[Rfam]
RNA sequence: GCAUCGGUGGUUUAGUGGUAAAAUUAGCCGUUGCCAUUGAUCUGGGUUCACCAGUUCAACAGUGUCGGCUAGCCCCGGGUUCGAUUCCCGGCCGAUGCA
Numbered sequence: 001g002c003a004u005c006g007g008u009g010g011u012u013u014a015g016u017g018g019u020a021a022a023a024u025u026a027g028c029c030g031u032u033g034c035c036a037u038u039g040a041u042c043u044g045g046g047u048u049c050a051c052c053a054g055u056u057c058a059a060c061a062g063u064g065u066c067g068g069c070u071a072g073c074c075c076c077g078g079g080u081u082c083g084a085u086u087c088c089c090g091g092c093c094g095a096u097g098c099a
Base pairs, nucleotide, nucleotide: 001098002097003096004095005094006093007092010024011023012022013021026070027069028068029067030066075091076090077089078088079087

This 99-nucleotide RNA from Paraphaeosphaeria minitans belongs to the Rfam family "tRNA". Pairs were carried over by alignment from the consensus structure, which is taken from published work. It scores 51 bits against the family's covariance model. By type it is a transfer RNA. Its family is annotated with triplet codon-amino acid adaptor activity in the Gene Ontology.